[Rfam]
RNA sequence: CCCCAGGGUCCUCCGCAGCCCGGCAACGGCAGUGCUUCCCUCACGUGAUCAGGCCCUGUGGUGGGCAGGGGUGCUUGCCCGGAGCCUGAGAUGACUAUGAAAACUGGGCAGGUGCAGUGCGGCCAGGGGAGGG
Numbered sequence: 001c002c003c004c005a006g007g008g009u010c011c012u013c014c015g016c017a018g019c020c021c022g023g024c025a026a027c028g029g030c031a032g033u034g035c036u037u038c039c040c041u042c043a044c045g046u047g048a049u050c051a052g053g054c055c056c057u058g059u060g061g062u063g064g065g066c067a068g069g070g071g072u073g074c075u076u077g078c079c080c081g082g083a084g085c086c087u088g089a090g091a092u093g094a095c096u097a098u099g100a101a102a103a104c105u106g107g108g109c110a111g112g113u114g115c116a117g118u119g120c121g122g123c124c125a126g127g128g129g130a131g132g133g
Base pairs, nucleotide, nucleotide: 001129002128003127004126013122014121015120016119049089050088051087052086053085054084056082057081061078062077063076064075065074066073067072
A member of the RNA family "small Cajal body-specific RNA 17" from Fukomys damarensis, 133 nucleotides long. NCBI's taxonomy places the organism under Eukaryota, Eumetazoa, Craniata, Eutheria, Fukomys. The family's RNA type in Rfam is small Cajal body RNA. The literature on the family includes a 2002 paper in EMBO J by Darzacq et al., "Cajal body-specific small nuclear RNAs: a novel class of 2'-O-methylation and pseudouridylation guide RNAs". Gene Ontology terms of the family: RNA processing, Cajal body and nucleolus. Rfam's curators write: scaRNAs are a specific class of small nuclear RNAs which localise to the Cajal bodies and guide the modification of RNA polymerase II transcribed spliceosomal RNAs U1, U2, U4, U5 and U12.